Notes
Shown here is a 53-nucleotide sequence from Shewanella frigidimarina, a member of the family "L31-Gammaproteobacteria ribosomal protein leader". The family's consensus secondary structure is taken from published work. A reference for the family is Eckert and Weinberg (2020), "Discovery of 20 novel ribosomal leader candidates in bacteria and archaea", BMC Microbiol.

RNA sequence: CAUGUGGUGCUCAACUUCGGGUUGGGAGAGCGACAUGGCCUUCAAUUUAAGGU
Numbered sequence: 001c002a003u004g005u006g007g008u009g010c011u012c013a014a015c016u017u018c019g020g021g022u023u024g025g026g027a028g029a030g031c032g033a034c035a036u037g038g039c040c041u042u043c044a045a046u047u048u049a050a051g052g053u
Base pairs, nucleotide, nucleotide: 001037002036003035004034005033007031008030010026011025012024013023014022015021